[Rfam]
The record is a 59-nucleotide RNA from Megalops atlanticus, which matches "mir-7132 microRNA precursor family" in Rfam. The family's consensus secondary structure was predicted with RNAalifold.

RNA sequence: GACUUGGUCAAAGCUCCUCAGUGCCUGCAGAGAAACCUGAGGAGUUUGGAACAAGUAUA
Numbered sequence: 001g002a003c004u005u006g007g008u009c010a011a012a013g014c015u016c017c018u019c020a021g022u023g024c025c026u027g028c029a030g031a032g033a034a035a036c037c038u039g040a041g042g043a044g045u046u047u048g049g050a051a052c053a054a055g056u057a058u059a
Stems, first nucleotide, its partner, number of pairs: 002056005008050002011047011023036001